[Rfam]
RNA sequence: GGGGAUGAUCGGAUUCGACAUUGCCUGCGAGCGAGAGAGAAGCGGGUCGAGGAUGCACAGUUAUCUCGUAAACGCUCUGUGCAAAAUAUAGGUGCCAAAUCUAAGCGCGCCGACUUCGCCCUCGCUGCCUAAGCGAGCCUGAAGUCCGUCAGACCGGACUAGAUCCCGAUCCGUGCUCUGGCGUCAUCUAGGGAACUAGCUGCAGUGUUAUGCCUGAGGGCACUGUGGGACUCUUACUCAGACUGGGCUCGUCGACUUAGAUGCUGGUAACAAAGGUCGGAGCCAAGUAGAACGCCUCUAAUCAGCUACACCCGUAGAAGACUCACAAUCCCAGCAGUGGACGGGGGUUCAAUUCCCCCCAUCUCCACCA
Numbered sequence: 001g002g003g004g005a006u007g008a009u010c011g012g013a014u015u016c017g018a019c020a021u022u023g024c025c026u027g028c029g030a031g032c033g034a035g036a037g038a039g040a041a042g043c044g045g046g047u048c049g050a051g052g053a054u055g056c057a058c059a060g061u062u063a064u065c066u067c068g069u070a071a072a073c074g075c076u077c078u079g080u081g082c083a084a085a086a087u088a089u090a091g092g093u094g095c096c097a098a099a100u101c102u103a104a105g106c107g108c109g110c111c112g113a114c115u116u117c118g119c120c121c122u123c124g125c126u127g128c129c130u131a132a133g134c135g136a137g138c139c140u141g142a143a144g145u146c147c148g149u150c151a152g153a154c155c156g157g158a159c160u161a162g163a164u165c166c167c168g169a170u171c172c173g174u175g176c177u178c179u180g181g182c183g184u185c186a187u188c189u190a191g192g193g194a195a196c197u198a199g200c201u202g203c204a205g206u207g208u209u210a211u212g213c214c215u216g217a218g219g220g221c222a223c224u225g226u227g228g229g230a231c232u233c234u235u236a237c238u239c240a241g242a243c244u245g246g247g248c249u250c251g252u253c254g255a256c257u258u259a260g261a262u263g264c265u266g267g268u269a270a271c272a273a274a275g276g277u278c279g280g281a282g283c284c285a286a287g288u289a290g291a292a293c294g295c296c297u298c299u300a301a302u303c304a305g306c307u308a309c310a311c312c313c314g315u316a317g318a319a320g321a322c323u324c325a326c327a328a329u330c331c332c333a334g335c336a337g338u339g340g341a342c343g344g345g346g347g348u349u350c351a352a353u354u355c356c357c358c359c360c361a362u363c364u365c366c367a368c369c370a
Base pairs, nucleotide, nucleotide: 001366002365003364004363005362006361007360019339020338021337022336023335024334027331033326037324038323039322043314044313045312046311047310048068049067050066051065052064054083055082056081057080058079059078060077120144122142123141124140127138128137147183148182149181150180151179152178155173156172157171158170167193200228201227202226203225204224205223206222207221208220212243214241215240216239246284247283248282249281250280253279254278255277258272263306264305265304266303268300269299343359344358345357346356347355
This 370-nucleotide RNA from Aurantimicrobium minutum belongs to the Rfam family "transfer-messenger RNA". A search with the family's covariance model found it, with a score of 153 bits. Rfam links the family to the GO term RNA catabolic process.